[Rfam]
RNA: Small nucleolar RNA SNORD60
RNA sequence: CGCCAGUGAUGACAAACUAAAUAACUUUUCUGACACCUCGUAUGAGAGUUGCACUGCAGCUCCUGAUUAUAAUUUUAAUCUGAGGCUC
Numbered sequence: 001c002g003c004c005a006g007u008g009a010u011g012a013c014a015a016a017c018u019a020a021a022u023a024a025c026u027u028u029u030c031u032g033a034c035a036c037c038u039c040g041u042a043u044g045a046g047a048g049u050u051g052c053a054c055u056g057c058a059g060c061u062c063c064u065g066a067u068u069a070u071a072a073u074u075u076u077a078a079u080c081u082g083a084g085g086c087u088c
Base pairs, nucleotide, nucleotide: 002086003085004084048060049059050058051057052056